Shown here is a 275-nucleotide RNA sequence, a member of the family "Hairpin ribozyme 2 from viruses-like metatranscriptomes".
RNA sequence: UAAACGGGUAUUUGGUGCCCGGUGCUGUCCGAUGGAACCAGACGUUUGGUACUGGAGGGGUGGAUAGUCUGCAUCCAUAGGCAACUGGAGUAAGUCCUAGGGCGAGGAGCGAAAGUUCCAGGGUAGCUCCCAUCUGAGUACGUCGCAAGUCCACGUUCCAACCCGGAGAAUGGGGUGAAACUCCUCUGAAAUCCGGUGUAGAUUCAUCCAUCGGGAAGCACAAACUAGCAGAAACACACAGAGAGUAGACGACUCUGUGGUAUAUUAAUGCUUGA
Numbered sequence: 001u002a003a004a005c006g007g008g009u010a011u012u013u014g015g016u017g018c019c020c021g022g023u024g025c026u027g028u029c030c031g032a033u034g035g036a037a038c039c040a041g042a043c044g045u046u047u048g049g050u051a052c053u054g055g056a057g058g059g060g061u062g063g064a065u066a067g068u069c070u071g072c073a074u075c076c077a078u079a080g081g082c083a084a085c086u087g088g089a090g091u092a093a094g095u096c097c098u099a100g101g102g103c104g105a106g107g108a109g110c111g112a113a114a115g116u117u118c119c120a121g122g123g124u125a126g127c128u129c130c131c132a133u134c135u136g137a138g139u140a141c142g143u144c145g146c147a148a149g150u151c152c153a154c155g156u157u158c159c160a161a162c163c164c165g166g167a168g169a170a171u172g173g174g175g176u177g178a179a180a181c182u183c184c185u186c187u188g189a190a191a192u193c194c195g196g197u198g199u200a201g202a203u204u205c206a207u208c209c210a211u212c213g214g215g216a217a218g219c220a221c222a223a224a225c226u227a228g229c230a231g232a233a234a235c236a237c238a239c240a241g242a243g244a245g246u247a248g249a250c251g252a253c254u255c256u257g258u259g260g261u262a263u264a265u266u267a268a269u270g271c272u273u274g275a
Stems, first nucleotide, its partner, number of pairs: 005021005022221004030213007038055004060154005078099004101144004227272003237259007
Rfam's curators write: Hairpin-meta ribozymes were recognised in metatranscriptomic sequences of viruses-like organisms, it was proved by co-transcriptional assays that hairpin-meta1 and hairpin-meta2 non-coding RNA (ncRNAs) are catalytically active and it is suggested that they likely replicate as circular single-stranded RNAs.